Rfam assigns this 54-nucleotide RNA sequence from Tessaracoccus sp. ZS01 to the family "msiK RNA".

[Rfam]
RNA sequence: GGGUUCCAAUCCACAACGGAUCGUCGGGCACGUACCUGCCCGUGGAAAGGACAA
Numbered sequence: 001g002g003g004u005u006c007c008a009a010u011c012c013a014c015a016a017c018g019g020a021u022c023g024u025c026g027g028g029c030a031c032g033u034a035c036c037u038g039c040c041c042g043u044g045g046a047a048a049g050g051a052c053a054a
Stems, first nucleotide, its partner, number of pairs: 007049001010046004025042006